[Rfam]
RNA: SAM riboswitch aptamer (S box leader)
RNA sequence: CUCUUAUCCAGAGAGGCGGAGGGAAUUGGCCCUAUGAAGCCUCGGCAGCAGACUCCUUGCGAGAACUGUGCCAAAUCCAACAAGCGGAAGCUUGGAAGAUGAGAG
Numbered sequence: 001c002u003c004u005u006a007u008c009c010a011g012a013g014a015g016g017c018g019g020a021g022g023g024a025a026u027u028g029g030c031c032c033u034a035u036g037a038a039g040c041c042u043c044g045g046c047a048g049c050a051g052a053c054u055c056c057u058u059g060c061g062a063g064a065a066c067u068g069u070g071c072c073a074a075a076u077c078c079a080a081c082a083a084g085c086g087g088a089a090g091c092u093u094g095g096a097a098g099a100u101g102a103g104a105g
Base pairs, nucleotide, nucleotide: 001105002104003103004102005101006100007099008098013043014042015041016040017039021032022031023030026080027079028078029077044072045071046070047069049068050067053063054062076097081094082093083092084091